[Rfam]
RNA sequence: UGCCAUGAUGUCGUAAUUUGCGUCUUACUCUGUAUUCAGUGACAGUUGCCUGCUGUCGGCGAGCUGGUACAGAUGGCUGACGAACAAUUGAUGCUGAGCA
Number, nucleotide and partner (000 for none) at each position: 001u100002g099003c098004c000005a000006u000007g000008a000009u000010g000011u000012c000013g000014u000015a000016a000017u000018u000019u000020g000021c082022g081023u080024c079025u000026u000027a000028c000029u000030c072031u071032g070033u069034a068035u000036u000037c000038a000039g064040u063041g057042a056043c055044a054045g053046u000047u000048g000049c000050c000051u000052g000053c045054u044055g043056u042057c041058g000059g000060c000061g000062a000063g040064c039065u000066g000067g000068u034069a033070c032071a031072g030073a000074u000075g000076g000077c000078u000079g024080a023081c022082g021083a000084a000085c000086a000087a000088u000089u000090g000091a000092u000093g000094c000095u000096g000097a000098g003099c002100a001
Notes: The family of this 100-nucleotide sequence from Alligator mississippiensis is "Small nucleolar RNA SNORD16". The family has 5 seed sequences and 1,321 matches in Rfam 15.1. Its family is annotated with RNA processing and nucleolus in the Gene Ontology. It scores 107 bits against the family's covariance model. For this family Rfam cites "A novel small nucleolar RNA (U16) is encoded inside a ribosomal protein intron and originates by processing of the pre-mRNA" (Fragapane et al., EMBO J, 1993).